[Rfam]
Streptomyces RNA 6106: an 83-nucleotide RNA from Streptomyces sp. YIM 121038. For this family Rfam cites "Deep sequencing-based identification of small non-coding RNAs in Streptomyces coelicolor" (Vockenhuber et al., RNA Biol, 2011). It scores 56 bits against the family's covariance model. Rfam describes the family as follows. Identified by deep sequencing of transcriptome at the end of exponential growth phase. Appears smaller on northern blot than sequencing transcript.
Nucleotides: 083
Stems, first nucleotide, its partner, number of pairs: 002018006020038001022036001023034003044079012057066003
Number, partner (000 for none) and nucleotide at each position: 001000a002018c003017g004016c005015c006014g007013c008000c009000u010000g011000g012000c013007g014006c015005g016004g017003c018002g019000c020038c021000c022036g023034u024033c025032c026000c027000g028000a029000c030000g031000g032025g033024g034023a035000c036022c037000u038020g039000a040000a041000g042000a043000c044079c045078g046077g047076g048075g049074g050073u051072g052071g053070u054069g055068c056000c057066g058065u059064g060000u061000c062000g063000g064059c065058g066057c067000a068055g069054c070053a071052c072051c073050a074049c075048c076047c077046c078045c079044g080000u081000g082000a083000c
By type it is a small RNA.